Overview:
The family of this 43-nucleotide sequence from Tenebrio molitor is "Coronavirus 3' stem-loop II-like motif (s2m)". Its Rfam clan is "Coronavirus 3' UTR". A reference for the family is Jonassen et al. (1998), "A common RNA motif in the 3' end of the genomes of astroviruses, avian infectious bronchitis virus and an equine rhinovirus", J Gen Virol. Pairs were carried over by alignment from the consensus structure, which is taken from published work. By type it is a cis-regulatory element. NCBI's taxonomy places the organism under Eukaryota, Pancrustacea, Aparaglossata, Tenebrionoidea, Tenebrio. The s2m motif is found in the 3' UTRs of astrovirus, coronavirus and equine rhinovirus genomes. Its function is unknown, but various viral 3' UTR regions have been found to play roles in viral replication and packaging. The seed alignment was expanded in 2020 by Eric Nawrocki.
[Rfam]
RNA sequence: AUUGUCCGAGGCCACGCGGAGUACGAUCGAGGGUACAGACACG
Numbered sequence: 001a002u003u004g005u006c007c008g009a010g011g012c013c014a015c016g017c018g019g020a021g022u023a024c025g026a027u028c029g030a031g032g033g034u035a036c037a038g039a040c041a042c043g
Stems, first nucleotide, its partner, number of pairs: 003041004011034003015029002017025002